RNA sequence: GAAUCAAAAACAUUUUAUAUAAGGAAACGAUGCCACAGUUAGCUGUCCAGAUUUCAACGGUGGCCAAUUGCCAGUGUUUCAAAUUUUAAUUUGAAAUACGAGUUUCCGAGAUCGAUUAUAUAUUGACAUGAUAGGAAGUCCGUUGUCCGUGUGUUCGCAAUGAACGAUAGGCUUGGGAUGUCGAAAGAAAGUCAACAUUU
Numbered sequence: 001g002a003a004u005c006a007a008a009a010a011c012a013u014u015u016u017a018u019a020u021a022a023g024g025a026a027a028c029g030a031u032g033c034c035a036c037a038g039u040u041a042g043c044u045g046u047c048c049a050g051a052u053u054u055c056a057a058c059g060g061u062g063g064c065c066a067a068u069u070g071c072c073a074g075u076g077u078u079u080c081a082a083a084u085u086u087u088a089a090u091u092u093g094a095a096a097u098a099c100g101a102g103u104u105u106c107c108g109a110g111a112u113c114g115a116u117u118a119u120a121u122a123u124u125g126a127c128a129u130g131a132u133a134g135g136a137a138g139u140c141c142g143u144u145g146u147c148c149g150u151g152u153g154u155u156c157g158c159a160a161u162g163a164a165c166g167a168u169a170g171g172c173u174u175g176g177g178a179u180g181u182c183g184a185a186a187g188a189a190a191g192u193c194a195a196c197a198u199u200u
Base pairs, nucleotide, nucleotide: 023080024079025078026077037069038068039067040066042064043063044062045061048060050058115192116191117190123188124187138179139178140177141176145172146171147170151168152167153165154164155163156162